[Rfam]
RNA sequence: CGAGUUAUACAAGCGCCAGAGCUUGACGACCGCAGGUGCUUGGCAUAUCGUUUCUUGAUCAUCGGUUCAGGAUGCGAAGACGGCCAGGGGGCGGAUCAGCAAGCUGACGAGGUGGAGGUGUUCGGAAUGUUCGGCGGGGACCUCCCGGUAUUGCACCAUAGCCGUAAGUCGGAUACGGAAAAUGAAUGGGCGACCGUUCACACAAUGUUCCGGCAGGGUGCCA
Numbered sequence: 001c002g003a004g005u006u007a008u009a010c011a012a013g014c015g016c017c018a019g020a021g022c023u024u025g026a027c028g029a030c031c032g033c034a035g036g037u038g039c040u041u042g043g044c045a046u047a048u049c050g051u052u053u054c055u056u057g058a059u060c061a062u063c064g065g066u067u068c069a070g071g072a073u074g075c076g077a078a079g080a081c082g083g084c085c086a087g088g089g090g091g092c093g094g095a096u097c098a099g100c101a102a103g104c105u106g107a108c109g110a111g112g113u114g115g116a117g118g119u120g121u122u123c124g125g126a127a128u129g130u131u132c133g134g135c136g137g138g139g140a141c142c143u144c145c146c147g148g149u150a151u152u153g154c155a156c157c158a159u160a161g162c163c164g165u166a167a168g169u170c171g172g173a174u175a176c177g178g179a180a181a182a183u184g185a186a187u188g189g190g191c192g193a194c195c196g197u198u199c200a201c202a203c204a205a206u207g208u209u210c211c212g213g214c215a216g217g218g219u220g221c222c223a
Stems, first nucleotide, its partner, number of pairs: 020105006029096001114145005122134004146164003149160003169213005183200007